The record is a 130-nucleotide sequence from Podargus strigoides, which matches "Small nucleolar RNA SNORA69" in Rfam. From the family's description: U69 is a member of the H/ACA class of small nucleolar RNAs (snoRNAs) which act as guides in the the modification of uridines to pseudouridines. Its family is annotated with RNA processing and nucleolus in the Gene Ontology.

RNA sequence: AAAGCAGGCUGCAAUUACAGUGCUUCAUUCUGUGGGAGUACUGCCAUUUUCCUGCUGAGAGGAACUCUGUUAAUGCUGUCUUGGUUUCACUAUACAGUGGUGAAACCACUUGUUCUUAACAUGUACAAGU
Number, nucleotide and partner (000 for none) at each position: 001a000002a000003a056004g055005c054006a053007g052008g051009c000010u000011g000012c000013a000014a000015u000016u000017a000018c043019a042020g041021u040022g039023c038024u037025u036026c035027a000028u000029u000030c000031u000032g000033u000034g000035g026036g025037a024038g023039u022040a021041c020042u019043g018044c000045c000046a000047u000048u000049u000050u000051c008052c007053u006054g005055c004056u003057g000058a000059g000060a000061g000062g000063a000064a000065c000066u123067c000068u121069g120070u119071u118072a117073a116074u000075g114076c000077u000078g000079u000080c000081u000082u108083g107084g106085u105086u104087u103088c102089a101090c100091u099092a098093u097094a000095c000096a000097g093098u092099g091100g090101u089102g088103a087104a086105a085106c084107c083108a082109c000110u000111u000112g000113u000114u075115c000116u073117u072118a071119a070120c069121a068122u000123g066124u000125a000126c000127a000128a000129g000130u000
It is annotated as an H/ACA-box small nucleolar RNA. The family's consensus secondary structure was predicted with PFOLD.